[Rfam]
Nucleotides: 304
Base pairs, nucleotide, nucleotide: 001040002039003038004023005022006021007020008019010017028037029036030035044303045302046301047300048299049298050297051296052295053294056291058288059287060286062283063282066279067278069277070276072274073273074272075271076270077269078268079262080261081260083258084257085256089252092248093247097246098245099244101242102241103240104239106234107233109232110231111230112229113228115225116224117223118222119221120220121219125164126163127162128161129160130159132157133156134155135154137152138151139150140149141148142147165170172217173216174215175214176213182209183208184207185206190201191200192199
Number, partner (000 for none) and nucleotide at each position: 001040g002039c003038u004023g005022a006021g007020c008019u009000a010017a011000a012000u013000a014000a015000c016000g017010u018000g019008a020007g021006c022005u023004u024000g025000u026000a027000a028037c029036u030035c031000u032000a033000g034000u035030g036029a037028g038003g039002g040001c041000a042000c043000u044303a045302a046301g047300g048299u049298g050297a051296u052295u053294g054000g055000a056291c057000u058288u059287g060286g061000g062283u063282c064000u065000u066279a067278c068000a069277c070276a071000c072274u073273c074272u075271g076270g077269u078268u079262g080261g081260g082000c083258u084257u085256g086000u087000g088000u089252a090000u091000c092248a093247c094000a095000g096000a097246c098245u099244g100000a101242c102241u103240u104239g105000g106234c107233c108000g109232u110231u111230c112229c113228a114000a115225g116224u117223u118222g119221g120220g121219a122000g123000u124000u125164g126163g127162a128161c129160u130159a131000u132157g133156u134155g135154g136000a137152a138151c139150a140149g141148g142147c143000g144000a145000a146000g147142g148141c149140c150139u151138g152137u153000g154135c155134c156133a157132c158000u159130u160129g161128g162127u163126u164125c165170c166000u167000a168000g169000a170165g171000u172217g173216g174215a175214g176213g177000g178000u179000a180000c181000c182209u183208c184207g185206u186000c187000a188000g189000g190201c191200u192199g193000g194000u195000u196000u197000c198000a199192c200191a201190g202000a203000g204000c205000a206185g207184c208183g209182a210000a211000a212000a213176c214175c215174u216173c217172c218000c219121u220120c221119u222118c223117g224116a225115c226000a227000g228113u229112g230111g231110a232109a233107g234106g235000a236000u237000a238000a239104c240103a241102a242101g243000a244099c245098g246097g247093g248092u249000g250000c251000u252089u253000c254000a255000u256085c257084a258083g259000u260081c261080c262079c263000a264000c265000u266000a267000c268078g269077g270076c271075c272074a273073g274072a275000u276070u277069g278067g279066u280000c281000u282063g283062g284000c285000c286060c287059c288058a289000a290000u291056g292000g293000a294053c295052a296051a297050u298049c299048a300047c301046u302045u303044u304000u
This 304-nucleotide RNA from Aquilegia coerulea belongs to the Rfam family "Plant signal recognition particle RNA". The base pairs follow the family's consensus structure, which is taken from published work. Rfam links the family to the GO terms signal recognition particle, endoplasmic reticulum targeting and SRP-dependent cotranslational protein targeting to membrane, signal sequence recognition. Its Rfam clan is "SRP clan". It scores 216 bits against the family's covariance model. By type it is a non-coding RNA gene.